[Rfam]
RNA: Bacillus sRNA ncr1575
RNA sequence: AUACUAAUAAAAGAAGAGGUGAUGGGUGGACGAUGAUUAACUAAUCUUAUUUUUACCGUUUGAAAUGGCAUAUUUCAAAUCAUAAAAAAAUAGGAUUAGUCUGCCCAUUUUUUAAUCAUAAAUUGAUUAGCUAUUAAGCCUAAUAGUUUAUUUAGGUUUAUUAACAUGCGACUAAUCCUUCCAAUUACACUUGGGAGGAUUUUUUU
Numbered sequence: 001a002u003a004c005u006a007a008u009a010a011a012a013g014a015a016g017a018g019g020u021g022a023u024g025g026g027u028g029g030a031c032g033a034u035g036a037u038u039a040a041c042u043a044a045u046c047u048u049a050u051u052u053u054u055a056c057c058g059u060u061u062g063a064a065a066u067g068g069c070a071u072a073u074u075u076c077a078a079a080u081c082a083u084a085a086a087a088a089a090a091u092a093g094g095a096u097u098a099g100u101c102u103g104c105c106c107a108u109u110u111u112u113u114a115a116u117c118a119u120a121a122a123u124u125g126a127u128u129a130g131c132u133a134u135u136a137a138g139c140c141u142a143a144u145a146g147u148u149u150a151u152u153u154a155g156g157u158u159u160a161u162u163a164a165c166a167u168g169c170g171a172c173u174a175a176u177c178c179u180u181c182c183a184a185u186u187a188c189a190c191u192u193g194g195g196a197g198g199a200u201u202u203u204u205u206u
Stems, first nucleotide, its partner, number of pairs: 016113004023107004029101003042098013058080009123154001125152001130147007174201011